Shown here is a 65-nucleotide sequence, a member of the family "Bacilli-1 RNA".
RNA sequence: AUUCGUAGUGAUACGAACACAUAAUUGAAGCACAUUAUGUGGCUUGGCAGAGCUUAAAAACUGUU
Numbered sequence: 001a002u003u004c005g006u007a008g009u010g011a012u013a014c015g016a017a018c019a020c021a022u023a024a025u026u027g028a029a030g031c032a033c034a035u036u037a038u039g040u041g042g043c044u045u046g047g048c049a050g051a052g053c054u055u056a057a058a059a060a061c062u063g064u065u
Stems, first nucleotide, its partner, number of pairs: 002017006018041007
The base pairs follow the family's consensus structure, which is taken from published work.